[Rfam]
RNA sequence: AUACUUACUUGGCACUGGAGUUAUCCUCGAUCACGAAGGAGGAUCUCCCGAGUAGAGGUCUGCCAUUGCAAGAAGGUGGACUGACACUCGCCACUUCCACAAAACGUGGUUGGUUUGGGGUGCAUAAUUUUUUGGUAGCGGGGCAUCCGCGCGGCCCUG
Numbered sequence: 001a002u003a004c005u006u007a008c009u010u011g012g013c014a015c016u017g018g019a020g021u022u023a024u025c026c027u028c029g030a031u032c033a034c035g036a037a038g039g040a041g042g043a044u045c046u047c048c049c050g051a052g053u054a055g056a057g058g059u060c061u062g063c064c065a066u067u068g069c070a071a072g073a074a075g076g077u078g079g080a081c082u083g084a085c086a087c088u089c090g091c092c093a094c095u096u097c098c099a100c101a102a103a104a105c106g107u108g109g110u111u112g113g114u115u116u117g118g119g120g121u122g123c124a125u126a127a128u129u130u131u132u133u134g135g136u137a138g139c140g141g142g143g144c145a146u147c148c149g150c151g152c153g154g155c156c157c158u159g
Stems, first nucleotide, its partner, number of pairs: 012123004017048004024043005050089004055085001057082003061078004091118003095112001098109001140158005146153001
The record is a 159-nucleotide RNA sequence from Trichonephila clavipes, which matches "U1 spliceosomal RNA" in Rfam.
The family is grouped with related families in Rfam's "U1 clan".
The base pairs follow the family's consensus structure, which is taken from published work.
A reference for the family is Zwieb (1997), "The uRNA database", Nucleic Acids Res.
Lineage of the source: Eukaryota > Bilateria > Arthropoda > Orbiculariae > Trichonephila.
Rfam classes the family as a spliceosomal small nuclear RNA.
It scores 91 bits against the family's covariance model.